[Rfam]
A member of the RNA family "mir-2807 microRNA precursor family" from Bombyx mori, 84 nucleotides long. A search with the family's covariance model found it, with a score of 80 bits.
RNA sequence: UAGCGUAAAUUUUGUAUGGAGUUGGAACGUUUGCCUACGUUUGCCGCUAGGGGCGCUGUUCCAACUGCACACAAAAUUGCGUUA
Numbered sequence: 001u002a003g004c005g006u007a008a009a010u011u012u013u014g015u016a017u018g019g020a021g022u023u024g025g026a027a028c029g030u031u032u033g034c035c036u037a038c039g040u041u042u043g044c045c046g047c048u049a050g051g052g053g054c055g056c057u058g059u060u061c062c063a064a065c066u067g068c069a070c071a072c073a074a075a076a077u078u079g080c081g082u083u084a
Base pairs, nucleotide, nucleotide: 008078009077010076011075012074013073014072015071018068020066021065022064023063024062025061026060027059028058029057034052035051036050039047040046
For this family Rfam cites "MicroRNAs of Bombyx mori identified by Solexa sequencing" (Liu et al., BMC Genomics, 2010).
Gene Ontology terms of the family: miRNA-mediated post-transcriptional gene silencing and RISC complex.